Small nucleolar RNA SNORA24: a 129-nucleotide RNA sequence from Polypterus senegalus.
It is annotated as an H/ACA-box small nucleolar RNA.
ACA24 is a member of the H/ACA class of snoRNA that guide the sites of modification of uridines to pseudouridines.
The organism belongs to Polypterus, within Eukaryota.
RNA sequence: GCCCACGCUACCAUGAGAGCCAUCUUUGUGAUGAACUCUCUUCCUAGGCGUGGUAGAGUGAUUUCUUGCUUCUUGGCAAUACUUCUGCUUGUGUUCUUGGCAGUGGUAAUGUUUGAGCAAGGAACAUUU
Dot-bracket structure: ..(((((.......((((..((((.....))))...))))........))))).............((.(..(((.(((.(((..((((.........))))..))).....)))..)))..).))...